[Rfam]
Background: Shown here is a 145-nucleotide RNA sequence from Jaculus jaculus, a member of the family "Small Cajal body specific RNA 21". Gene Ontology terms of the family: nucleolus, Cajal body and RNA processing. scaRNAs are a specific class of small nuclear RNAs which localise to the Cajal bodies and guide the modification of RNA polymerase II transcribed spliceosomal RNAs U1, U2, U4, U5 and U12. ACA68 (SCARNA21) is a member of the H/ACA class of snoRNAs that guide the sites of modification of uridines to pseudouridines. This snoRNA was identified by computational screening and its expression in mouse experimentally verified by Northern blot and primer extension analysis. ACA68 is proposed to guide the pseudouridylation of residue U19 in U12 snRNA. The match comes from Rfam's covariance-model search (104 bits). NCBI's taxonomy places the organism under Eukaryota, Chordata, Euarchontoglires, Dipodinae, Jaculus.
RNA sequence: GGGCUCAGUUUCCUGGGAGGUGGUCUCAGCCUACUCUGCCUCCCCUCAAUAGAGCCUAGACUAGAAGGGCCAGGCCUUCUGCCUUUUGGGAGAGCGGAGAGGGUGUCAGAGGAAGCCUCACCUCGGCUGGCCUGGCCUCACAUUG
Numbered sequence: 001g002g003g004c005u006c007a008g009u010u011u012c013c014u015g016g017g018a019g020g021u022g023g024u025c026u027c028a029g030c031c032u033a034c035u036c037u038g039c040c041u042c043c044c045c046u047c048a049a050u051a052g053a054g055c056c057u058a059g060a061c062u063a064g065a066a067g068g069g070c071c072a073g074g075c076c077u078u079c080u081g082c083c084u085u086u087u088g089g090g091a092g093a094g095c096g097g098a099g100a101g102g103g104u105g106u107c108a109g110a111g112g113a114a115g116c117c118u119c120a121c122c123u124c125g126g127c128u129g130g131c132c133u134g135g136c137c138u139c140a141c142a143u144u145g
Base pairs, nucleotide, nucleotide: 002056003055004054005053006052015044016043017042018041019040020039021038022037023036067138068137069136070135072133073132074131078126079125088118089117090116